Small nucleolar RNA SNORA70: a 134-nucleotide sequence from Jaculus jaculus. Taxonomically the source falls in Jaculus (Eukaryota, Craniata, Mammalia, Myomorpha). The match comes from Rfam's covariance-model search (138 bits). Gene Ontology terms of the family: RNA processing and nucleolus. snoRNA U70 seems to be exclusive to mammals and is a member of the H/ACA class of snoRNA which contain H (ANANNA) and ACA box motifs. H/ACA box snoRNAs are involved in the conversion of uridines to pseudouridines (5-ribosyluracil) a constituent of structural RNAs (transfer, ribosomal, small nuclear, and small nucleolar).
RNA sequence: CUGCAGCCAAUUAAGCCGACCGGUUUCCUCUCCUCGUGGGGCCCAGUGUGCAGUGGCUGCAAGCAGCAGCCUCCUUGGUUGUGUACGUUACCUGUUGCUUGUACAGGUUGCCCUAAGGGACCUUGGAGACAGUU
Number, nucleotide and partner (000 for none) at each position: 001c000002u052003g051004c050005a049006g000007c000008c000009a000010a000011u000012u000013a000014a000015g000016c000017c000018g000019a047020c046021c000022g044023g000024u000025u041026u040027c039028c038029u000030c000031u000032c000033c000034u000035c000036g000037u000038g028039g027040g026041g025042c000043c000044c022045a000046g020047u019048g000049u005050g004051c003052a002053g000054u000055g000056g000057c000058u000059g000060c000061a000062a000063g000064c000065a000066g000067c000068a000069g000070c000071c000072u000073c000074c000075u000076u000077g122078g121079u120080u000081g000082u000083g000084u000085a000086c000087g000088u110089u000090a108091c107092c106093u105094g000095u000096u000097g000098c000099u000100u000101g000102u000103a000104c000105a093106g092107g091108u090109u000110g088111c000112c000113c000114u000115a000116a000117g000118g000119g000120a079121c078122c077123u000124u000125g000126g000127a000128g000129a000130c000131a000132g000133u000134u000